This 533-nucleotide part of an RNA from Methanococcus voltae belongs to the Rfam family "Archaeal large subunit ribosomal RNA".
[Rfam]
RNA sequence: CAAAUACCCUACUUGGGGAAUGGCUUGGCUUGGAACGCCGACGAAGGACGUGGUAAGCUGCGAUAAGCUUAGGCGAGGUGCAUACAACCUUUGAACCUAAGAUUUCCUAAUGGGACUUCCUACUGUAAAGUGAUCCGUAAGGAUUGGGAACGCGGGGAAUUGAAGCAUCUUAGUACCCGCAGGAAGAGAAAUCAAAUGAGAUUCCGUGAUUAGAGGCGAUUGAAAGCGGAUUAGGGCAAACUGAAUCCCUUCGGGGAGAUGUGGUGUUAUAGGGCCUUUGUUCAAUGAUUUGAUGAGAACUGAAGUUGACUGGAAUGUCAUACCAUAGAGGGUGAAAGUCCCGUAAGUGAAUCUGAUAUGAUUUAUAAGGUUCCUGAGUACCGUGCGUUGGAUAUCGCGCGGGAAAUUGGGAGGCAUCGACUUCCAACCCUAAAUACGUUCCAAGACCGAUAGCGUAUUAGUACCGCGAGGGAAAGCUGAAAAGUAUCCUUAAUAGGAUGUGAAAAGUGCCUGAAACCAAGUAGGUAUGGAAU
Numbered sequence: 001c002a003a004a005u006a007c008c009c010u011a012c013u014u015g016g017g018g019a020a021u022g023g024c025u026u027g028g029c030u031u032g033g034a035a036c037g038c039c040g041a042c043g044a045a046g047g048a049c050g051u052g053g054u055a056a057g058c059u060g061c062g063a064u065a066a067g068c069u070u071a072g073g074c075g076a077g078g079u080g081c082a083u084a085c086a087a088c089c090u091u092u093g094a095a096c097c098u099a100a101g102a103u104u105u106c107c108u109a110a111u112g113g114g115a116c117u118u119c120c121u122a123c124u125g126u127a128a129a130g131u132g133a134u135c136c137g138u139a140a141g142g143a144u145u146g147g148g149a150a151c152g153c154g155g156g157g158a159a160u161u162g163a164a165g166c167a168u169c170u171u172a173g174u175a176c177c178c179g180c181a182g183g184a185a186g187a188g189a190a191a192u193c194a195a196a197u198g199a200g201a202u203u204c205c206g207u208g209a210u211u212a213g214a215g216g217c218g219a220u221u222g223a224a225a226g227c228g229g230a231u232u233a234g235g236g237c238a239a240a241c242u243g244a245a246u247c248c249c250u251u252c253g254g255g256g257a258g259a260u261g262u263g264g265u266g267u268u269a270u271a272g273g274g275c276c277u278u279u280g281u282u283c284a285a286u287g288a289u290u291u292g293a294u295g296a297g298a299a300c301u302g303a304a305g306u307u308g309a310c311u312g313g314a315a316u317g318u319c320a321u322a323c324c325a326u327a328g329a330g331g332g333u334g335a336a337a338g339u340c341c342c343g344u345a346a347g348u349g350a351a352u353c354u355g356a357u358a359u360g361a362u363u364u365a366u367a368a369g370g371u372u373c374c375u376g377a378g379u380a381c382c383g384u385g386c387g388u389u390g391g392a393u394a395u396c397g398c399g400c401g402g403g404a405a406a407u408u409g410g411g412a413g414g415c416a417u418c419g420a421c422u423u424c425c426a427a428c429c430c431u432a433a434a435u436a437c438g439u440u441c442c443a444a445g446a447c448c449g450a451u452a453g454c455g456u457a458u459u460a461g462u463a464c465c466g467c468g469a470g471g472g473a474a475a476g477c478u479g480a481a482a483a484g485u486a487u488c489c490u491u492a493a494u495a496g497g498a499u500g501u502g503a504a505a506a507g508u509g510c511c512u513g514a515a516a517c518c519a520a521g522u523a524g525g526u527a528u529g530g531a532a533u
Stems, first nucleotide, its partner, number of pairs: 008525009022511001023477002027448002029445006036438002045108004049062003068101006077089003112121003133144004151182001152180005162169002192199002203230005213221002233431004241264003275370004285362002288359001299348003305321001307320004324328001330342003381402007409425005464471002
Lineage of the source: Archaea > Methanococci > Methanococcales > Methanococcaceae > Methanococcus voltae.